This 109-nucleotide sequence from Abrus precatorius belongs to the Rfam family "MIR394 microRNA precursor family". Pairs were carried over by alignment from the consensus structure, which was predicted with WAR. NCBI's taxonomy places the organism under Eukaryota, Streptophytina, Gunneridae, fabids, Abrus.
RNA sequence: UUCACAGAGCCCGUUUGGCCUCCUGGCCACCUCCAUUUGUUACCUUCUGAAGUGAUUCUAAAACAACCCAUUAAUGGAGGUGGACAGAAUGCCAAAAUGGCUAUGGAAC
Numbered sequence: 001u002u003c004a005c006a007g008a009g010c011c012c013g014u015u016u017g018g019c020c021u022c023c024u025g026g027c028c029a030c031c032u033c034c035a036u037u038u039g040u041u042a043c044c045u046u047c048u049g050a051a052g053u054g055a056u057u058c059u060a061a062a063a064c065a066a067c068c069c070a071u072u073a074a075u076g077g078a079g080g081u082g083g084a085c086a087g088a089a090u091g092c093c094a095a096a097a098u099g100g101c102u103a104u105g106g107a108a109c
Stems, first nucleotide, its partner, number of pairs: 011099001015095005024086002027083008
Gene Ontology terms of the family: RISC complex and miRNA-mediated post-transcriptional gene silencing.